RNA: drum RNA
Organism: Eubacterium plexicaudatum
RNA sequence: AAGCGUAGAAAUAAAGGAGUGCGCCGGUAUGCAUUGCUUUAUGGAGCUUUCAGGAAUGGUUGAGCAGUGAAACCUCAAACCGGCUCAGGCAGAGUAAACGGUAGAUAGUGCGUACC
Numbered sequence: 001a002a003g004c005g006u007a008g009a010a011a012u013a014a015a016g017g018a019g020u021g022c023g024c025c026g027g028u029a030u031g032c033a034u035u036g037c038u039u040u041a042u043g044g045a046g047c048u049u050u051c052a053g054g055a056a057u058g059g060u061u062g063a064g065c066a067g068u069g070a071a072a073c074c075u076c077a078a079a080c081c082g083g084c085u086c087a088g089g090c091a092g093a094g095u096a097a098a099c100g101g102u103a104g105a106u107a108g109u110g111c112g113u114a115c116c
Stems, first nucleotide, its partner, number of pairs: 001049004011042006018035005024083004088116002